[Rfam]
RNA sequence: ACCAGACCGCCGCCGAACUCCACGGCCCGCGCACGACGGCGGGCCAGGGGACCGGGGACCCACCGCAGCACUGGGGUGAAGCACUGCGCGGCCCAGCCGGGCCGCAGGUGCCGGGUGUCUUCCCAUCCGAACCCGUCAGCUAACUCGGUAGGCGGCACGUUGGAAGAAAG
Numbered sequence: 001a002c003c004a005g006a007c008c009g010c011c012g013c014c015g016a017a018c019u020c021c022a023c024g025g026c027c028c029g030c031g032c033a034c035g036a037c038g039g040c041g042g043g044c045c046a047g048g049g050g051a052c053c054g055g056g057g058a059c060c061c062a063c064c065g066c067a068g069c070a071c072u073g074g075g076g077u078g079a080a081g082c083a084c085u086g087c088g089c090g091g092c093c094c095a096g097c098c099g100g101g102c103c104g105c106a107g108g109u110g111c112c113g114g115g116u117g118u119c120u121u122c123c124c125a126u127c128c129g130a131a132c133c134c135g136u137c138a139g140c141u142a143a144c145u146c147g148g149u150a151g152g153c154g155g156c157a158c159g160u161u162g163g164a165a166g167a168a169a170g
Stems, first nucleotide, its partner, number of pairs: 011154004018050003051149006061073002074134003082110004113128004
This 170-nucleotide RNA sequence from Modestobacter roseus belongs to the Rfam family "c-di-AMP riboswitch aptamer (ydaO/yuaA leader)". The match comes from Rfam's covariance-model search (52 bits). NCBI's taxonomy places the organism under Bacteria, Actinomycetes, Geodermatophilales, Geodermatophilaceae, Modestobacter.